[Rfam]
RNA sequence: GCAUAUCACGAGUUUGUGCGUGAAUCUAACACGAUUGAAACAAAGAUAGAAGAGGAUCUUCCCUUCCCCCAACAGCAGUCAGCAGUGCGUGCAAGAUCUCUCGUGUUAGAUUCACGCACAAACAUGAAAUAUGCCU
Number, nucleotide and partner (000 for none) at each position: 001g134002c133003a132004u000005a130006u129007c000008a000009c000010g000011a000012g123013u122014u121015u120016g119017u118018g117019c116020g115021u114022g113023a112024a111025u110026c109027u000028a107029a106030c105031a000032c103033g102034a000035u000036u000037g000038a000039a000040a000041c000042a000043a000044a000045g000046a000047u000048a000049g000050a000051a000052g000053a000054g000055g000056a000057u000058c000059u000060u000061c000062c000063c000064u000065u000066c000067c000068c000069c000070c000071a000072a000073c000074a000075g000076c000077a000078g000079u000080c000081a000082g000083c000084a000085g000086u000087g000088c000089g000090u000091g000092c000093a000094a000095g000096a000097u000098c000099u000100c000101u000102c033103g032104u000105g030106u029107u028108a000109g026110a025111u024112u023113c022114a021115c020116g019117c018118a017119c016120a015121a014122a013123c012124a000125u000126g000127a000128a000129a006130u005131a000132u003133g002134c001135c000136u000